SAM riboswitch aptamer (S box leader): a 108-nucleotide sequence from Clostridium acidisoli.
[Rfam]
RNA sequence: CUCUUAUCAAGAGAGGUGGAGGGAAAAUGGCCCUGUGAAACCCGGCAACCGAUGUGUAAUAACAUUAAGGUGCCAAUUCCUGCAAAAUUAAAUUUUGCAAGAUAAGAG
Numbered sequence: 001c002u003c004u005u006a007u008c009a010a011g012a013g014a015g016g017u018g019g020a021g022g023g024a025a026a027a028u029g030g031c032c033c034u035g036u037g038a039a040a041c042c043c044g045g046c047a048a049c050c051g052a053u054g055u056g057u058a059a060u061a062a063c064a065u066u067a068a069g070g071u072g073c074c075a076a077u078u079c080c081u082g083c084a085a086a087a088u089u090a091a092a093u094u095u096u097g098c099a100a101g102a103u104a105a106g107a108g
Stems, first nucleotide, its partner, number of pairs: 001108008013043001015042003021033003029080002044074004049070002051066004078100001083097006